[Rfam]
RNA sequence: UGUUCUUCGUGUUCACUGCGAUCCUUGAUCUAAUUUCAAGAAUUAAGGCACGCGGUGAAUGCCAAGGGCG
Numbered sequence: 001u002g003u004u005c006u007u008c009g010u011g012u013u014c015a016c017u018g019c020g021a022u023c024c025u026u027g028a029u030c031u032a033a034u035u036u037c038a039a040g041a042a043u044u045a046a047g048g049c050a051c052g053c054g055g056u057g058a059a060u061g062c063c064a065a066g067g068g069c070g
Stems, first nucleotide, its partner, number of pairs: 003068004009062008018053003023048007

Shown here is a 70-nucleotide sequence from Holothuria leucospilota, a member of the family "mir-124 microRNA precursor family". It scores 71 bits against the family's covariance model. Its family is annotated with RISC complex and miRNA-mediated post-transcriptional gene silencing in the Gene Ontology.